[Rfam]
RNA sequence: GCUGCAUGCCCUCCGUGGGCGUUUCCUCCCUAGACUUCAAGGGCAGCGCUUCAUGCGCGGCCCUUUUUUCUUUUCGGG
Numbered sequence: 001g002c003u004g005c006a007u008g009c010c011c012u013c014c015g016u017g018g019g020c021g022u023u024u025c026c027u028c029c030c031u032a033g034a035c036u037u038c039a040a041g042g043g044c045a046g047c048g049c050u051u052c053a054u055g056c057g058c059g060g061c062c063c064u065u066u067u068u069u070c071u072u073u074u075c076g077g078g
Stems, first nucleotide, its partner, number of pairs: 008020004041063004046058004

The family of this 78-nucleotide sequence from Camelimonas lactis is "Makes More Granules Regulator RNA (mmgR)". Pairs were carried over by alignment from the consensus structure. By type it is a small RNA. Taxonomically the source falls in Camelimonas (Bacteria, Pseudomonadati, Pseudomonadota, Hyphomicrobiales).